[Rfam]
RNA sequence: UGCAUUCACUACUGUAAGUCGCUCUGGUUAAGAGUAUCUGCUAAAUGAUGUAAA
Numbered sequence: 001u002g003c004a005u006u007c008a009c010u011a012c013u014g015u016a017a018g019u020c021g022c023u024c025u026g027g028u029u030a031a032g033a034g035u036a037u038c039u040g041c042u043a044a045a046u047g048a049u050g051u052a053a054a
Stems, first nucleotide, its partner, number of pairs: 013043001014041003021035005

Annotation
Rfam assigns this 54-nucleotide RNA from Salmo salar to the family "UnaL2 LINE 3' element". The family's consensus secondary structure is taken from published work. Taxonomically the source falls in Salmo (Eukaryota, Bilateria, Gnathostomata, Teleostei). The family's RNA type in Rfam is cis-regulatory element. It scores 59 bits against the family's covariance model.